[Rfam]
RNA sequence: CUUAUAACAGAUCAUCGGCAGUUAACUGCAGCCGGUUUCUUCAGAAUUCGGUAGUUAACUGCCGAGGGAUAU
Numbered sequence: 001c002u003u004a005u006a007a008c009a010g011a012u013c014a015u016c017g018g019c020a021g022u023u024a025a026c027u028g029c030a031g032c033c034g035g036u037u038u039c040u041u042c043a044g045a046a047u048u049c050g051g052u053a054g055u056u057a058a059c060u061g062c063c064g065a066g067g068g069a070u071a072u
Stems, first nucleotide, its partner, number of pairs: 012068002015065015
This 72-nucleotide sequence from Medicago truncatula belongs to the Rfam family "MIR2629 microRNA precursor family". It scores 68 bits against the family's covariance model. The base pairs follow the family's consensus structure, which was predicted with RNAalifold. Rfam links the family to the GO terms miRNA-mediated post-transcriptional gene silencing and RISC complex.